[Rfam]
RNA sequence: AUCAGAGGUGCUGAAAAGCCCUCCGAAUCGCGCUCCAACUUACCGUGAGAGCCGAUUUGCGUUGUAAAGCCCACAAGGCCGUUCGAUGAGAUUGCGACUGGAACGAAGUUGUCCUGAGGGACGGGGAAGCGUUAAGCCGCAGCACGCAUCGAGCACAGUAAGUUGAGUCGUCUAACGGCAUCUUUGAUCCGCUAAACGCCAAAUGACUUAGUCAUUUGCAACCACUGAAGCCAGCGCACUGUCA
Numbered sequence: 001a002u003c004a005g006a007g008g009u010g011c012u013g014a015a016a017a018g019c020c021c022u023c024c025g026a027a028u029c030g031c032g033c034u035c036c037a038a039c040u041u042a043c044c045g046u047g048a049g050a051g052c053c054g055a056u057u058u059g060c061g062u063u064g065u066a067a068a069g070c071c072c073a074c075a076a077g078g079c080c081g082u083u084c085g086a087u088g089a090g091a092u093u094g095c096g097a098c099u100g101g102a103a104c105g106a107a108g109u110u111g112u113c114c115u116g117a118g119g120g121a122c123g124g125g126g127a128a129g130c131g132u133u134a135a136g137c138c139g140c141a142g143c144a145c146g147c148a149u150c151g152a153g154c155a156c157a158g159u160a161a162g163u164u165g166a167g168u169c170g171u172c173u174a175a176c177g178g179c180a181u182c183u184u185u186g187a188u189c190c191g192c193u194a195a196a197c198g199c200c201a202a203a204u205g206a207c208u209u210a211g212u213c214a215u216u217u218g219c220a221a222c223c224a225c226u227g228a229a230g231c232c233a234g235c236g237c238a239c240u241g242u243c244a
Base pairs, nucleotide, nucleotide: 005023006022007021008020010019011018012017027056028055029054030053034051036049040045058151059150063146064145065144069079070078071077081137082136085133086132087131088130114126115125159165160164169198170197171196173194174193176191177190178189204233
RNA: sRNA regulator of biofilms A